RNA sequence: AACUGUUAAUUUAAGCACUGUGCUAAAAUUUCAGAAACUAGGAUCAUAGCUUGGUUUUUGUAAUAAUGCUACCAGAGUACAUACAAGUACAUGCAUAACUGCACCAGAUCAGAAAAGAUUGGGAUGGACCUCAUUCUUAAUGUCCACUGUCCUUUGUCUCAAAAUUUGGUGCAAUAAAU
Numbered sequence: 001a002a003c004u005g006u007u008a009a010u011u012u013a014a015g016c017a018c019u020g021u022g023c024u025a026a027a028a029u030u031u032c033a034g035a036a037a038c039u040a041g042g043a044u045c046a047u048a049g050c051u052u053g054g055u056u057u058u059u060g061u062a063a064u065a066a067u068g069c070u071a072c073c074a075g076a077g078u079a080c081a082u083a084c085a086a087g088u089a090c091a092u093g094c095a096u097a098a099c100u101g102c103a104c105c106a107g108a109u110c111a112g113a114a115a116a117g118a119u120u121g122g123g124a125u126g127g128a129c130c131u132c133a134u135u136c137u138u139a140a141u142g143u144c145c146a147c148u149g150u151c152c153u154u155u156g157u158c159u160c161a162a163a164a165u166u167u168g169g170u171g172c173a174a175u176a177a178a179u
Stems, first nucleotide, its partner, number of pairs: 018077002021074002024071002028067003034058002037055006044048001100173009121150001123148001125146004

Rfam assigns this 179-nucleotide sequence from Chrysochloris asiatica to the family "Small nucleolar RNA SNORA81". The family's RNA type in Rfam is H/ACA-box small nucleolar RNA. A search with the family's covariance model found it, with a score of 169 bits. The organism belongs to Chrysochloris, within Eukaryota. On this family, see Gu et al., Nucleic Acids Res 2005: "A novel experimental approach for systematic identification of box H/ACA snoRNAs from eukaryotes".